The family of this 83-nucleotide RNA sequence from Lathyrus oleraceus is "Small nucleolar RNA Z102/R77". Rfam links the family to the GO terms nucleolus and RNA processing. It is annotated as a C/D-box small nucleolar RNA. Its Rfam clan is "SNORD44 clan".
[Rfam]
RNA sequence: GAAUGAGAUGAUGAAUGGUUAUUUCCCUAUUGGUUUGAUUGCCCGAAUGAUGGCGUUUUUGUAUUAGCUCUAUCUGAUCUUUC
Numbered sequence: 001g002a003a004u005g006a007g008a009u010g011a012u013g014a015a016u017g018g019u020u021a022u023u024u025c026c027c028u029a030u031u032g033g034u035u036u037g038a039u040u041g042c043c044c045g046a047a048u049g050a051u052g053g054c055g056u057u058u059u060u061g062u063a064u065u066a067g068c069u070c071u072a073u074c075u076g077a078u079c080u081u082u083c
Stems, first nucleotide, its partner, number of pairs: 002082002005079001037057001040055004